Small nucleolar RNA SNORD19: a 76-nucleotide RNA from Trichechus manatus. The source organism's lineage runs through Eukaryota, Craniata, Mammalia, Trichechus and Trichechus manatus.
RNA sequence: AAGAAAUGAAGAAGUUAAGAUUGGUCUUAGUGUUUAAGUGAAGACGCUCAGAUCCAACUCUGAUCUUGCUCUAAAC
Number, nucleotide and partner (000 for none) at each position: 001a067002a066003g065004a064005a000006a000007u000008g000009a000010a000011g000012a000013a000014g000015u000016u000017a000018a000019g000020a000021u000022u000023g000024g000025u000026c000027u000028u000029a000030g000031u000032g000033u000034u000035u000036a000037a000038g000039u000040g000041a000042a000043g000044a000045c000046g000047c000048u000049c000050a000051g000052a000053u000054c000055c000056a000057a000058c000059u000060c000061u000062g000063a000064u004065c003066u002067u001068g000069c000070u000071c000072u000073a000074a000075a000076c000
It is annotated as a C/D-box small nucleolar RNA. Pairs were carried over by alignment from the consensus structure. Its family is annotated with RNA processing and nucleolus in the Gene Ontology.